[Rfam]
RNA sequence: CUCUUAUCAAGAGAGGUGGAGGGAAAGGGCCCUGUGAAACCCGGCAACCUGUAGCGAUACGUGGUGCCAAUUCCUGCAGCAUGGUUGCUGCGAGAUAAGAG
Numbered sequence: 001c002u003c004u005u006a007u008c009a010a011g012a013g014a015g016g017u018g019g020a021g022g023g024a025a026a027g028g029g030c031c032c033u034g035u036g037a038a039a040c041c042c043g044g045c046a047a048c049c050u051g052u053a054g055c056g057a058u059a060c061g062u063g064g065u066g067c068c069a070a071u072u073c074c075u076g077c078a079g080c081a082u083g084g085u086u087g088c089u090g091c092g093a094g095a096u097a098a099g100a101g
Base pairs, nucleotide, nucleotide: 001101002100003099004098005097006096007095008094013042015041016040017039021032022031023030027075028074029073043068044067045066046065048064049063050061051060052059053058072093077090078089079088080087081086

The record is a 101-nucleotide sequence from Proteiniclasticum aestuarii, which matches "SAM riboswitch aptamer (S box leader)" in Rfam. The source organism's lineage runs through Bacteria, Bacillati, Bacillota, Eubacteriales and Proteiniclasticum. The base pairs follow the family's consensus structure, which is taken from published work.